Glycine riboswitch aptamer: a 93-nucleotide sequence from Firmicutes bacterium CAG:646. It scores 56 bits against the family's covariance model. The pairing is the family consensus, mapped onto this sequence.

RNA sequence: GGAUGGCUCUCUGGAGAAUCCCGGAAAAUGGGUGCCGAAGGUGAAAGUGAUGAAAGUCGCGAAUCUCUCAGGCAAAAGGACAGUGUUGAAGCA
Numbered sequence: 001g002g003a004u005g006g007c008u009c010u011c012u013g014g015a016g017a018a019u020c021c022c023g024g025a026a027a028a029u030g031g032g033u034g035c036c037g038a039a040g041g042u043g044a045a046a047g048u049g050a051u052g053a054a055a056g057u058c059g060c061g062a063a064u065c066u067c068u069c070a071g072g073c074a075a076a077a078g079g080a081c082a083g084u085g086u087u088g089a090a091g092c093a
Base pairs, nucleotide, nucleotide: 009085011083012082013081020032021031022030023029034073035072036071037069038068041067043065047060048059